The record is a 61-nucleotide RNA from Cohnella nanjingensis, which matches "Fluoride riboswitch aptamer (crcB RNA motif)" in Rfam. The organism belongs to Cohnella, within Bacteria.
[Rfam]
RNA sequence: UUUUGCAAAAGCGAUGGCGUUCGCCGACAAUCGCCUUCGAACUGAUGACGCCUGCCCGCUU
Numbered sequence: 001u002u003u004u005g006c007a008a009a010a011g012c013g014a015u016g017g018c019g020u021u022c023g024c025c026g027a028c029a030a031u032c033g034c035c036u037u038c039g040a041a042c043u044g045a046u047g048a049c050g051c052c053u054g055c056c057c058g059c060u061u
Base pairs, nucleotide, nucleotide: 011024012023013022016052017051018050019049020048021047033042